The family of this 92-nucleotide RNA sequence from Protea cynaroides is "Small nucleolar RNA snoR27".
It scores 70 bits against the family's covariance model.
Rfam classes the family as a C/D-box small nucleolar RNA.
Its family is annotated with nucleolus and RNA processing in the Gene Ontology.
[Rfam]
RNA sequence: UCUGGAUCCAUGAUGUUGUAAAAAACUGCGUUAUCUAUCUGCAAUUCUAUAAAUGGAUUGAAGAUGACAAUAAUAAGUUUCUGAGAUCCAGG
Numbered sequence: 001u002c003u004g005g006a007u008c009c010a011u012g013a014u015g016u017u018g019u020a021a022a023a024a025a026c027u028g029c030g031u032u033a034u035c036u037a038u039c040u041g042c043a044a045u046u047c048u049a050u051a052a053a054u055g056g057a058u059u060g061a062a063g064a065u066g067a068c069a070a071u072a073a074u075a076a077g078u079u080u081c082u083g084a085g086a087u088c089c090a091g092g
Stems, first nucleotide, its partner, number of pairs: 001092007